T-box leader: a 260-nucleotide RNA sequence from Paenibacillus oceani.
The source organism's lineage runs through Bacteria, Bacillota, Bacilli, Caryophanales and Paenibacillus.
Rfam describes the family as follows. Uncharged tRNA acts as the effector for transcription antitermination of genes in the T-box leader family.
Rfam classes the family as a cis-regulatory leader.
For this family Rfam cites "Interaction between the acceptor end of tRNA and the T box stimulates antitermination in the Bacillus subtilis tyrS gene: a new role for the discriminator base" (Grundy et al., J Bacteriol, 1994).
Pairs were carried over by alignment from the consensus structure, which is taken from published work.

RNA sequence: UGAAAUGCGAUGAAGAGACGAGUAAAUAAAUGAAUUCUUUCACAGAGAACCCUGGCCGGCUGAGAAGGGGUAAAGGAUUUUUUAUUGAAAAAAGACUCUGAGCAGCAGGUCGGAACUCACGUGAGGGAUGGCGUGCCAGGAGCUCCUGUUAUAGAGCUAGAGUAUAAGCAUUACGUCGUAAUGCCGUACUUAAAGAGGCCGGUAUGGCGACAUACCAGCGAAUCAGGGUGGUACCACGAGUAUAGGAUCUCGUCCCUAAG
Numbered sequence: 001u002g003a004a005a006u007g008c009g010a011u012g013a014a015g016a017g018a019c020g021a022g023u024a025a026a027u028a029a030a031u032g033a034a035u036u037c038u039u040u041c042a043c044a045g046a047g048a049a050c051c052c053u054g055g056c057c058g059g060c061u062g063a064g065a066a067g068g069g070g071u072a073a074a075g076g077a078u079u080u081u082u083u084a085u086u087g088a089a090a091a092a093a094g095a096c097u098c099u100g101a102g103c104a105g106c107a108g109g110u111c112g113g114a115a116c117u118c119a120c121g122u123g124a125g126g127g128a129u130g131g132c133g134u135g136c137c138a139g140g141a142g143c144u145c146c147u148g149u150u151a152u153a154g155a156g157c158u159a160g161a162g163u164a165u166a167a168g169c170a171u172u173a174c175g176u177c178g179u180a181a182u183g184c185c186g187u188a189c190u191u192a193a194a195g196a197g198g199c200c201g202g203u204a205u206g207g208c209g210a211c212a213u214a215c216c217a218g219c220g221a222a223u224c225a226g227g228g229u230g231g232u233a234c235c236a237c238g239a240g241u242a243u244a245g246g247a248u249c250u251c252g253u254c255c256c257u258a259a260g
Stems, first nucleotide, its partner, number of pairs: 007103002015098003025086006038074003049071005106135002109132004137148003198219002201216004225257004236253005